[Rfam]
RNA: Plastid-ndhJ 3UTR RNA
Organism: Phoenix dactylifera
RNA sequence: CCAUGAACUUUGUACCGCGUAUAUCACUUAGACAGACCUCGGAAAGUAACGUAAGCA
Numbered sequence: 001c002c003a004u005g006a007a008c009u010u011u012g013u014a015c016c017g018c019g020u021a022u023a024u025c026a027c028u029u030a031g032a033c034a035g036a037c038c039u040c041g042g043a044a045a046g047u048a049a050c051g052u053a054a055g056c057a
Stems, first nucleotide, its partner, number of pairs: 019037002022034001024032002